[Rfam]
RNA sequence: CACUUAUCCAGAGAGGUGGAGGGACUGGCCCUUUGACACCCAGCAACCGGCAUGUUUAUGUACGGUGCUAAUUCCAGCAAAGCUUAAGCUUUGAAAGAUGAGAC
Numbered sequence: 001c002a003c004u005u006a007u008c009c010a011g012a013g014a015g016g017u018g019g020a021g022g023g024a025c026u027g028g029c030c031c032u033u034u035g036a037c038a039c040c041c042a043g044c045a046a047c048c049g050g051c052a053u054g055u056u057u058a059u060g061u062a063c064g065g066u067g068c069u070a071a072u073u074c075c076a077g078c079a080a081a082g083c084u085u086a087a088g089c090u091u092u093g094a095a096a097g098a099u100g101a102g103a104c
Stems, first nucleotide, its partner, number of pairs: 003102006013041001015040003021031003025077004042069004047065002050061004073096001078093006
Notes:
This 104-nucleotide RNA sequence from Halobacillus salinus belongs to the Rfam family "SAM riboswitch aptamer (S box leader)". The match comes from Rfam's covariance-model search (86 bits). The family's consensus secondary structure is taken from published work.